[Rfam]
RNA sequence: CCAAAGGCUCUUUUAAGAGCCACCUAUUUUUUCAAGUAAAAGAGCU
Numbered sequence: 001c002c003a004a005a006g007g008c009u010c011u012u013u014u015a016a017g018a019g020c021c022a023c024c025u026a027u028u029u030u031u032u033c034a035a036g037u038a039a040a041a042g043a044g045c046u
Stems, first nucleotide, its partner, number of pairs: 006021006

Shown here is a 46-nucleotide RNA from Anthoscopus minutus, a member of the family "Histone 3' UTR stem-loop". The organism belongs to Anthoscopus, within Eukaryota. Rfam classes the family as a cis-regulatory element. It scores 41 bits against the family's covariance model. The mRNAs of metazoan histone genes lack a poly-A tail. 3' end processing occurs at a site between a highly conserved stem-loop (modelled by this family) and a purine rich region around 20 nts downstream (the histone downstream element, or HDE).